[Rfam]
RNA sequence: UACGUUAGUGAUGGCUUUUAAAGUUCACACAGACGGGAAUCUCUCUGAAAGACAAUGAAGAUCAGUUUUAAACUGAAACCGUA
Numbered sequence: 001u002a003c004g005u006u007a008g009u010g011a012u013g014g015c016u017u018u019u020a021a022a023g024u025u026c027a028c029a030c031a032g033a034c035g036g037g038a039a040u041c042u043c044u045c046u047g048a049a050a051g052a053c054a055a056u057g058a059a060g061a062u063c064a065g066u067u068u069u070a071a072a073c074u075g076a077a078a079c080c081g082u083a
Stems, first nucleotide, its partner, number of pairs: 001083003004079003